Rfam assigns this 80-nucleotide RNA from Trichechus manatus to the family "mir-872 microRNA precursor family". The family's consensus secondary structure was predicted with RNAalifold. Lineage of the source: Eukaryota > Teleostomi > Amniota > Afrotheria > Trichechus manatus. The family has 5 seed sequences and 45 matches in Rfam 15.1.
RNA sequence: UUUUUGUUAGAAGGUUACUUAUUAGUUCAAGACUUGUUAUUUCUUGCUUGAACUAUUGUAGUAACUUCCUAACUGAUCUC
Number, nucleotide and partner (000 for none) at each position: 001u000002u000003u076004u075005u000006g073007u072008u071009a070010g069011a000012a067013g066014g065015u064016u063017a062018c061019u060020u000021a000022u000023u055024a054025g053026u052027u051028c050029a049030a048031g047032a000033c000034u000035u000036g000037u000038u000039a000040u000041u000042u000043c000044u000045u000046g000047c031048u030049u029050g028051a027052a026053c025054u024055a023056u000057u000058g000059u000060a019061g018062u017063a016064a015065c014066u013067u012068c000069c010070u009071a008072a007073c006074u000075g004076a003077u000078c000079u000080c000